[Rfam]
RNA sequence: AUUUGACACUCCCCUACGGUGGCCAGUCUGGCUCCGAGUUUCGGGCGUGGUGCGAUGAC
Numbered sequence: 001a002u003u004u005g006a007c008a009c010u011c012c013c014c015u016a017c018g019g020u021g022g023c024c025a026g027u028c029u030g031g032c033u034c035c036g037a038g039u040u041u042c043g044g045g046c047g048u049g050g051u052g053c054g055a056u057g058a059c
Base pairs, nucleotide, nucleotide: 007049008048009047011045012044013043016041018035019034021033022032023031024030025029
Rfam assigns this 59-nucleotide sequence from Azonexus hydrophilus to the family "Selenocysteine insertion sequence 3". It scores 70 bits against the family's covariance model. The family's consensus secondary structure was predicted with CMfinder. The family's RNA type in Rfam is cis-regulatory element.